Description: A member of the RNA family "Group II catalytic intron D1-D4-5" from Desulfosporosinus sp. HMP52, 200 nucleotides long. Pairs were carried over by alignment from the consensus structure. Its family is annotated with Group II intron splicing in the Gene Ontology. A search with the family's covariance model found it, with a score of 166 bits. Group II introns are found in rRNA, tRNA and mRNA of organelles in fungi, plants and protists, and also in mRNA in bacteria. For this family Rfam cites "The ins and outs of group II introns" (Bonen and Vogel, Trends Genet, 2001).

[Rfam]
RNA sequence: UAGAACUAACAUCACGAAAAGUCGAAUGAAGGGAUAACACCCUGAAAGGCUUUCUUUAAUACUCCGAUAGGCGUAUAGAUAAAUAAGCAUUGAAGCGUCUAAAGCUCGGUGAAGUCGCGCGAGAACUGCCCCAAGAGAGAAUCUCUUAGGAAACCUAUCCAGAGGUGGAUGGCGUAGUCUAUAGUGCGGAAGUCUAAAAA
Numbered sequence: 001u002a003g004a005a006c007u008a009a010c011a012u013c014a015c016g017a018a019a020a021g022u023c024g025a026a027u028g029a030a031g032g033g034a035u036a037a038c039a040c041c042c043u044g045a046a047a048g049g050c051u052u053u054c055u056u057u058a059a060u061a062c063u064c065c066g067a068u069a070g071g072c073g074u075a076u077a078g079a080u081a082a083a084u085a086a087g088c089a090u091u092g093a094a095g096c097g098u099c100u101a102a103a104g105c106u107c108g109g110u111g112a113a114g115u116c117g118c119g120c121g122a123g124a125a126c127u128g129c130c131c132c133a134a135g136a137g138a139g140a141a142u143c144u145c146u147u148a149g150g151a152a153a154c155c156u157a158u159c160c161a162g163a164g165g166u167g168g169a170u171g172g173c174g175u176a177g178u179c180u181a182u183a184g185u186g187c188g189g190a191a192g193u194c195u196a197a198a199a200a
Stems, first nucleotide, its partner, number of pairs: 018053006031043003054192004064109004068101007076093001078091003116188005125178005130150002137145002155172007